[Rfam]
RNA: Alphaproteobacteria transfer-messenger RNA
RNA sequence: CCCCUUUUCUUUUGAUUGCACCCGCCCUAUAUCGGGCCUGCCGGUUUCGGCCGGCUAUGGUGAUAAAUUGCGGCGUGCAAUAGGCACAGCGGACCCGGGGGCAGUACCCGGCGGCUCCACCACCUCUCUCGUUGUCGCGGGGGAAAUGACGGGGCCGAACCAGGAUCGACGUGUGUUGAAAAGCGUUGUUUUCACCCGGGCUGAGUAACCCGUUCAAGGCUCAAAACUCACAAGUGCCAACGACAACGAAGCACUUGCUCUCGCCGCGUAACCUGACGGCCUAACGGCCUGAUCUUACAAAGCGAAAGCACGGUUCGGACCGAACCGGGUAACAGAAUCGGAAACC
Number, nucleotide and partner (000 for none) at each position: 001c000002c000003c000004c000005u000006u000007u000008u000009c000010u000011u000012u000013u000014g000015a000016u000017u000018g000019c000020a000021c000022c000023c000024g000025c000026c000027c000028u000029a000030u000031a000032u000033c000034g000035g000036g000037c000038c000039u000040g055041c054042c053043g052044g051045u000046u000047u000048c000049g000050g000051c044052c043053g042054g041055c040056u000057a000058u000059g196060g195061u194062g193063a192064u000065a000066a000067a000068u000069u000070g189071c188072g187073g186074c185075g184076u183077g000078c000079a000080a000081u000082a000083g000084g000085c175086a174087c173088a000089g172090c171091g170092g000093a000094c000095c111096c110097g109098g108099g107100g000101g000102c000103a000104g000105u000106a000107c099108c098109c097110g096111g095112c157113g156114g155115c154116u153117c152118c151119a000120c000121c000122a000123c000124c000125u000126c000127u000128c000129u000130c000131g000132u000133u000134g000135u000136c000137g000138c000139g000140g000141g000142g000143g000144a000145a000146a000147u000148g000149a000150c000151g118152g117153g116154g115155c114156c113157g112158a000159a000160c000161c000162a000163g000164g000165a000166u000167c000168g000169a000170c091171g090172u089173g087174u086175g085176u000177u000178g000179a000180a000181a000182a000183g076184c075185g074186u073187u072188g071189u070190u000191u000192u063193c062194a061195c060196c059197c212198g211199g210200g209201c000202u223203g222204a221205g000206u000207a000208a000209c200210c199211c198212g197213u000214u000215c000216a000217a000218g000219g000220c000221u204222c203223a202224a000225a000226a000227c000228u000229c000230a000231c000232a000233a000234g000235u000236g000237c000238c000239a000240a000241c000242g000243a000244c000245a000246a000247c000248g000249a000250a000251g000252c000253a000254c000255u000256u000257g000258c000259u000260c000261u000262c000263g000264c000265c000266g000267c000268g000269u000270a000271a000272c000273c000274u000275g000276a000277c000278g000279g000280c000281c000282u000283a000284a000285c000286g000287g000288c000289c000290u000291g000292a000293u000294c000295u000296u000297a000298c000299a000300a000301a000302g000303c000304g000305a000306a000307a000308g000309c000310a000311c327312g326313g325314u324315u000316c000317g000318g000319a000320c340321c000322g338323a000324a314325c313326c312327g311328g000329g000330u000331a000332a000333c000334a000335g000336a000337a000338u322339c000340g320341g000342a000343a000344a000345c000346c000